[Rfam]
RNA sequence: UGAAAACUCCCAUCAGGAGGGUUGUUCCCCAACCAGGAACGACCUUACCGUAUUCAGAAUUU
Numbered sequence: 001u002g003a004a005a006a007c008u009c010c011c012a013u014c015a016g017g018a019g020g021g022u023u024g025u026u027c028c029c030c031a032a033c034c035a036g037g038a039a040c041g042a043c044c045u046u047a048c049c050g051u052a053u054u055c056a057g058a059a060u061u062u
Base pairs, nucleotide, nucleotide: 018046019045020044021043022042023041024040025039026038027037028036